Rfam assigns this 144-nucleotide RNA from Paenibacillus sp. FSL R5-0912 to the family "Group II catalytic intron D1-D4-4". Gene Ontology term of the family: Group II intron splicing. Taxonomically the source falls in Paenibacillus (Bacteria, Bacillati, Caryophanales, Paenibacillaceae). From the family's description: Group II introns are found in rRNA, tRNA and mRNA of organelles in fungi, plants and protists, and also in mRNA in bacteria. The pairing is the family consensus, mapped onto this sequence. Rfam 15.1 lists 840 matches to the family in 506 species.

[Rfam]
RNA sequence: UGGUUGGUGCAAGCCCAACCCAAGGAGGGGCCAAGCCACCUUGGUAGCCAGGAUGCUUGCACAUGGCGAAAUCUGUGUGUAAAAGUGCAUCGACAAAAGUACCUGUCAGAGACAGGGCGAGCGACAAUCCAGGCUGCAACAUGA
Numbered sequence: 001u002g003g004u005u006g007g008u009g010c011a012a013g014c015c016c017a018a019c020c021c022a023a024g025g026a027g028g029g030g031c032c033a034a035g036c037c038a039c040c041u042u043g044g045u046a047g048c049c050a051g052g053a054u055g056c057u058u059g060c061a062c063a064u065g066g067c068g069a070a071a072u073c074u075g076u077g078u079g080u081a082a083a084a085g086u087g088c089a090u091c092g093a094c095a096a097a098a099g100u101a102c103c104u105g106u107c108a109g110a111g112a113c114a115g116g117g118c119g120a121g122c123g124a125c126a127a128u129c130c131a132g133g134c135u136g137c138a139a140c141a142u143g144a
Stems, first nucleotide, its partner, number of pairs: 020044005052091005057082006066073001099118001102116005121137003